[Rfam]
RNA sequence: AAGUAAAGGAGCAAUAACCUAUUUCUUGUUCUAUCAAGAAGAUUGAUAUUGCUCCUUUAC
Numbered sequence: 001a002a003g004u005a006a007a008g009g010a011g012c013a014a015u016a017a018c019c020u021a022u023u024u025c026u027u028g029u030u031c032u033a034u035c036a037a038g039a040a041g042a043u044u045g046a047u048a049u050u051g052c053u054c055c056u057u058u059a060c
Stems, first nucleotide, its partner, number of pairs: 005058012023040006
Shown here is a 60-nucleotide RNA from Osyris alba, a member of the family "Plastid-psbA-4 3UTR RNA". Plastid psbA-4 is a non-coding RNA (ncRNA) present in plastids. The base pairs follow the family's consensus structure, which was predicted with LocARNA. It is one of the family's seed sequences. On this family, see Richter et al., Plant Commun 2023: "Retrograde signaling in plants: A critical review focusing on the GUN pathway and beyond".